[Rfam]
RNA sequence: AAUACGAUCGGAGGUGCGUCCAAGAAGAGUAGGAUUUUCCAUCAAUGGGAGAAUAUUGGGAGAAUCUGAAAGGCGAGGACGCCGAAGGGUGUAGAGUUUCUCCCACUCUACAUGCCUGGGGGUACAGGGAAUACCUGUGCCACUGUCACGGAAAUAUCCGUGGAGAGCCGAUCGUUGG
Numbered sequence: 001a002a003u004a005c006g007a008u009c010g011g012a013g014g015u016g017c018g019u020c021c022a023a024g025a026a027g028a029g030u031a032g033g034a035u036u037u038u039c040c041a042u043c044a045a046u047g048g049g050a051g052a053a054u055a056u057u058g059g060g061a062g063a064a065u066c067u068g069a070a071a072g073g074c075g076a077g078g079a080c081g082c083c084g085a086a087g088g089g090u091g092u093a094g095a096g097u098u099u100c101u102c103c104c105a106c107u108c109u110a111c112a113u114g115c116c117u118g119g120g121g122g123u124a125c126a127g128g129g130a131a132u133a134c135c136u137g138u139g140c141c142a143c144u145g146u147c148a149c150g151g152a153a154a155u156a157u158c159c160g161u162g163g164a165g166a167g168c169c170g171a172u173c174g175u176u177g178g
Stems, first nucleotide, its partner, number of pairs: 006173006016082006024074001032067008086117003089113009118144002121141008146163007
Lysine riboswitch aptamer: a 178-nucleotide sequence from Thermosipho sp. 1063. A search with the family's covariance model found it, with a score of 123 bits. The base pairs follow the family's consensus structure, which is taken from published work.